[Rfam]
Rfam assigns this 60-nucleotide sequence from Latilactobacillus sakei to the family "Lacto-rpoB RNA".
RNA sequence: GUAGAAAAAUUUAUUGUGCUGAUCUAUUGUCCAGCACGGUAUUCAUGAAAAGCAAAAAUA
Numbered sequence: 001g002u003a004g005a006a007a008a009a010u011u012u013a014u015u016g017u018g019c020u021g022a023u024c025u026a027u028u029g030u031c032c033a034g035c036a037c038g039g040u041a042u043u044c045a046u047g048a049a050a051a052g053c054a055a056a057a058a059u060a
Stems, first nucleotide, its partner, number of pairs: 009046001012041010